[Rfam]
RNA sequence: CCAGGCGGAGUACGUGGAGGACUCUGCCCGGGUGCCCUCGGUGUUCUGGUGUACUUCCCCGACAUCAGAACCCACGAGAACCCGGGCAGGGCCCUGCACAUACUGCGCUACAUGUU
Numbered sequence: 001c002c003a004g005g006c007g008g009a010g011u012a013c014g015u016g017g018a019g020g021a022c023u024c025u026g027c028c029c030g031g032g033u034g035c036c037c038u039c040g041g042u043g044u045u046c047u048g049g050u051g052u053a054c055u056u057c058c059c060c061g062a063c064a065u066c067a068g069a070a071c072c073c074a075c076g077a078g079a080a081c082c083c084g085g086g087c088a089g090g091g092c093c094c095u096g097c098a099c100a101u102a103c104u105g106c107g108c109u110a111c112a113u114g115u116u
Stems, first nucleotide, its partner, number of pairs: 010103003014099003019094002022091012035078001038074001040072003045069008